[Rfam]
RNA sequence: UGAACUCAGGCGGGAGAGACCGGGGUUGUCGCACCCGGCGCCGAAGGAGCAAGUUCCUCCCCGGGAACCUCUCAGGCAUCCAGGACCGCGUGAGCGAG
Numbered sequence: 001u002g003a004a005c006u007c008a009g010g011c012g013g014g015a016g017a018g019a020c021c022g023g024g025g026u027u028g029u030c031g032c033a034c035c036c037g038g039c040g041c042c043g044a045a046g047g048a049g050c051a052a053g054u055u056c057c058u059c060c061c062c063g064g065g066a067a068c069c070u071c072u073c074a075g076g077c078a079u080c081c082a083g084g085a086c087c088g089c090g091u092g093a094g095c096g097a098g
Base pairs, nucleotide, nucleotide: 006093007092008091010089011088012087013086020038021037022036023035040077041076042075043073044072047071048070049069054064055063
Overview:
The family of this 98-nucleotide RNA from Nocardia sp. NRRL S-836 is "Glycine riboswitch aptamer". NCBI's taxonomy places the organism under Bacteria, Bacillati, Actinomycetes, Mycobacteriales, Nocardia. Rfam links the family to the GO term glycine biosynthetic process.